[Rfam]
RNA sequence: CUGUUUCUUGCUUCAACAGUGUUUGGACGGAACAG
Number, nucleotide and partner (000 for none) at each position: 001c035002u034003g033004u032005u031006u000007c030008u029009u000010g028011c000012u027013u026014c025015a024016a023017c021018a000019g000020u000021g017022u000023u016024u015025g014026g013027a012028c010029g008030g007031a005032a004033c003034a002035g001
Rfam assigns this 35-nucleotide RNA from Erinaceus europaeus to the family "Iron response element I". Taxonomically the source falls in Erinaceus (Eukaryota, Eumetazoa, Dipnotetrapodomorpha, Boreoeutheria). The literature on the family includes a 1987 paper in Science by Hentze et al., "Identification of the iron-responsive element for the translational regulation of human ferritin mRNA". By type it is a cis-regulatory element.